RAGATH-18 RNA: a 61-nucleotide sequence. It is annotated as a small RNA.
[Rfam]
Nucleotides: 061
Stems, first nucleotide, its partner, number of pairs: 001059005009048005021043003029036002
Number, partner (000 for none) and nucleotide at each position: 001059g002058c003057u004056g005055u006000g007000g008000a009048g010047a011046g012045u013044u014000a015000u016000a017000c018000a019000a020000a021043c022042g023041a024000a025000a026000g027000u028000a029036g030035c031000u032000a033000a034000g035030g036029c037000a038000a039000a040000a041023u042022c043021g044013g045012a046011c047010u048009u049000u050000a051000u052000g053000a054000a055005g056004c057003a058002g059001c060000g061000a
Source information
About the family: Actinobacteria, Firmicutes, Fusobacteria, Thermotogae (1 example).